[Rfam]
RNA sequence: AUCGCUUCUGGCCUCUGGCUUAGAUCAAUUGUAGUUACUGUUCUUAUCGGCACAAUCUCCGAUACGUACACUGUGUGUAAUACCAACGAGAUUAACAUAUUUUUGGAAAUGGUUCGGUUAGCAGAAGCUUGCUUCUCGCCAAACAGUUCCGUCCCGGCAUUGCACAUGCCGUCGGGAUCAACGCACACCCCUU
Numbered sequence: 001a002u003c004g005c006u007u008c009u010g011g012c013c014u015c016u017g018g019c020u021u022a023g024a025u026c027a028a029u030u031g032u033a034g035u036u037a038c039u040g041u042u043c044u045u046a047u048c049g050g051c052a053c054a055a056u057c058u059c060c061g062a063u064a065c066g067u068a069c070a071c072u073g074u075g076u077g078u079a080a081u082a083c084c085a086a087c088g089a090g091a092u093u094a095a096c097a098u099a100u101u102u103u104u105g106g107a108a109a110u111g112g113u114u115c116g117g118u119u120a121g122c123a124g125a126a127g128c129u130u131g132c133u134u135c136u137c138g139c140c141a142a143a144c145a146g147u148u149c150c151g152u153c154c155c156g157g158c159a160u161u162g163c164a165c166a167u168g169c170c171g172u173c174g175g176g177a178u179c180a181a182c183g184c185a186c187a188c189c190c191c192u193u
Base pairs, nucleotide, nucleotide: 007024008023009022010020011019012018013017045064046063047062048061049060050059066081067080069077070076071075112144113143114142116140117139118138124135125134126133127132148185150183151182152181153176154175155174156173157172158171
The record is a 193-nucleotide sequence from Mesorhabditis spiculigera, which matches "U2 spliceosomal RNA" in Rfam. For this family Rfam cites "Crystal structure of a model branchpoint-U2 snRNA duplex containing bulged adenosines" (Berglund et al., RNA, 2001). It scores 98 bits against the family's covariance model. Rfam classes the family as a spliceosomal small nuclear RNA.